[Rfam]
RNA sequence: AAAAUAAGUGCUAUAGCAAUAGCCUAAUAUUUUGCUUUCCGAGUAGUGCCUUUCCUAAGGCACUUUUUUUUGUCU
Numbered sequence: 001a002a003a004a005u006a007a008g009u010g011c012u013a014u015a016g017c018a019a020u021a022g023c024c025u026a027a028u029a030u031u032u033u034g035c036u037u038u039c040c041g042a043g044u045a046g047u048g049c050c051u052u053u054c055c056u057a058a059g060g061c062a063c064u065u066u067u068u069u070u071u072g073u074c075u
Base pairs, nucleotide, nucleotide: 001070002069003068004067006065007064008063021036022035023034026031047062048061049060050059051058052057
RNA: Aggregatibacter sRNA 20